[Rfam]
RNA sequence: AAUUUACUAACGUUAUAACACACACAUAUUACAACACUUUGCCGGGGUGCUUUGGUGAAAACUAAAGUCGGUUGAAGCGAAUAUGUGGAGGCAUAAC
Numbered sequence: 001a002a003u004u005u006a007c008u009a010a011c012g013u014u015a016u017a018a019c020a021c022a023c024a025c026a027u028a029u030u031a032c033a034a035c036a037c038u039u040u041g042c043c044g045g046g047g048u049g050c051u052u053u054g055g056u057g058a059a060a061a062c063u064a065a066a067g068u069c070g071g072u073u074g075a076a077g078c079g080a081a082u083a084u085g086u087g088g089a090g091g092c093a094u095a096a097c
Stems, first nucleotide, its partner, number of pairs: 023087008037077004041072004049068005
t44 RNA: a 97-nucleotide RNA sequence from Orbus hercynius. The base pairs follow the family's consensus structure, which was predicted with LocARNA. By type it is a small RNA. It scores 63 bits against the family's covariance model.